RNA sequence: UUUGAGGGGAAUGUUGUUUGGCUCGAGGCCCAUAACAAGAUCUAUCCCCACACAUAUGCAUCUUUAUGCAUACGUUUUUAUCGGUUAUUACUAUAUCGGUAUCUCGGAUCGUAUGUUAGGCGUCGGACCAGGCUUCAUUCCCCCCAAU
Numbered sequence: 001u002u003u004g005a006g007g008g009g010a011a012u013g014u015u016g017u018u019u020g021g022c023u024c025g026a027g028g029c030c031c032a033u034a035a036c037a038a039g040a041u042c043u044a045u046c047c048c049c050a051c052a053c054a055u056a057u058g059c060a061u062c063u064u065u066a067u068g069c070a071u072a073c074g075u076u077u078u079u080a081u082c083g084g085u086u087a088u089u090a091c092u093a094u095a096u097c098g099g100u101a102u103c104u105c106g107g108a109u110c111g112u113a114u115g116u117u118a119g120g121c122g123u124c125g126g127a128c129c130a131g132g133c134u135u136c137a138u139u140c141c142c143c144c145c146a147a148u
Stems, first nucleotide, its partner, number of pairs: 002147003006143008016133006024125003
Dot-bracket structure: .(((.((((((((..((((((..(((................................................................................................)))..))))))..)))))))).))).
RNA: mir-166 microRNA precursor family
Organism: Salvia splendens